[Rfam]
RNA: Interferon gamma 5' UTR regulatory element
Organism: Camelus dromedarius
RNA sequence: CAUUCUUCUGAUCAUCUGAAGAUCAGCUAAUAGAAAAGAAGAGCAGCUAAGUCCUGUGGACCUGAUCGACUUAAUACAGGAGCUACAGAUUUCAACUACUUUGGCCUAACUCUUCCCUGAAACGAUGAAUUACACAAGUUAUAUUUUGGCUUUUCAGCUUUGCGUGAUC
Numbered sequence: 001c002a003u004u005c006u007u008c009u010g011a012u013c014a015u016c017u018g019a020a021g022a023u024c025a026g027c028u029a030a031u032a033g034a035a036a037a038g039a040a041g042a043g044c045a046g047c048u049a050a051g052u053c054c055u056g057u058g059g060a061c062c063u064g065a066u067c068g069a070c071u072u073a074a075u076a077c078a079g080g081a082g083c084u085a086c087a088g089a090u091u092u093c094a095a096c097u098a099c100u101u102u103g104g105c106c107u108a109a110c111u112c113u114u115c116c117c118u119g120a121a122a123c124g125a126u127g128a129a130u131u132a133c134a135c136a137a138g139u140u141a142u143a144u145u146u147u148g149g150c151u152u153u154u155c156a157g158c159u160u161u162g163c164g165u166g167a168u169c
Stems, first nucleotide, its partner, number of pairs: 009068006015120002018117001020113003026105004032100002035097001040092003044088001046086001050084003055080001057078002122168001125165003131143002134140001148159004
Dot-bracket structure: ........[[[[[[((.(.(((...((((..((.(....(((.(.(...(((..(.((....]]]]]]........)).).))).).).)))....).)).)))).....)))...).)).(..(((...((.(.....).))....((((....))))...)))..).